[Rfam]
RNA sequence: ACAAGGUUAUGUAACUGACGGAAGUGGAACAACCACGGGGAGCAUAAUCAUGUUUCGAGCCGACCGUCUGGGCUGAGAUU
Numbered sequence: 001a002c003a004a005g006g007u008u009a010u011g012u013a014a015c016u017g018a019c020g021g022a023a024g025u026g027g028a029a030c031a032a033c034c035a036c037g038g039g040g041a042g043c044a045u046a047a048u049c050a051u052g053u054u055u056c057g058a059g060c061c062g063a064c065c066g067u068c069u070g071g072g073c074u075g076a077g078a079u080u
Stems, first nucleotide, its partner, number of pairs: 003051001005049008015039002017068005024036004058074004

Rfam assigns this 80-nucleotide sequence from Megasphaera geminata to the family "ZMP/ZTP riboswitch aptamer (pfl RNA motif)". It scores 62 bits against the family's covariance model. The family has 185 seed sequences and 3,295 matches in Rfam 15.1.